Record summary
Rfam assigns this 113-nucleotide RNA sequence from Pseudogulbenkiania sp. NH8B to the family "Manganese Mn2+ riboswitch aptamer (yybP-ykoY)". It scores 72 bits against the family's covariance model. Pairs were carried over by alignment from the consensus structure.

RNA sequence: AAUGUUGUCAUUGGGGAGUAGCCAUCCUUAGCCCCUUGCUAAGGAGUUCACGUCAACAAACUUGAGGCCAUAGCCUCAUGGCGUGAACAGCCUCUGCACCAGCAGAGAGAGCC
Numbered sequence: 001a002a003u004g005u006u007g008u009c010a011u012u013g014g015g016g017a018g019u020a021g022c023c024a025u026c027c028u029u030a031g032c033c034c035c036u037u038g039c040u041a042a043g044g045a046g047u048u049c050a051c052g053u054c055a056a057c058a059a060a061c062u063u064g065a066g067g068c069c070a071u072a073g074c075c076u077c078a079u080g081g082c083g084u085g086a087a088c089a090g091c092c093u094c095u096g097c098a099c100c101a102g103c104a105g106a107g108a109g110a111g112c113c
Stems, first nucleotide, its partner, number of pairs: 026044003046088010063078005